[Rfam]
RNA sequence: GGGAGUGUUUAUGUUCAAGGUGAACAUCCUGGACUUCAAAUCCAGCGGCAGGCAGGCGGACCUGUCUGCGGUGGGUUCGAUUCCCACACAUUCCC
Numbered sequence: 001g002g003g004a005g006u007g008u009u010u011a012u013g014u015u016c017a018a019g020g021u022g023a024a025c026a027u028c029c030u031g032g033a034c035u036u037c038a039a040a041u042c043c044a045g046c047g048g049c050a051g052g053c054a055g056g057c058g059g060a061c062c063u064g065u066c067u068g069c070g071g072u073g074g075g076u077u078c079g080a081u082u083c084c085c086a087c088a089c090a091u092u093c094c095c
Stems, first nucleotide, its partner, number of pairs: 001095008011027006029045005048069007072086004
The family of this 95-nucleotide sequence from Halanaerobium saccharolyticum is "Selenocysteine transfer RNA".
Its family is annotated with triplet codon-amino acid adaptor activity in the Gene Ontology.
Lineage of the source: Bacteria > Bacillota > Halanaerobiales > Halanaerobiaceae > Halanaerobium saccharolyticum subsp. saccharolyticum.
It scores 67 bits against the family's covariance model.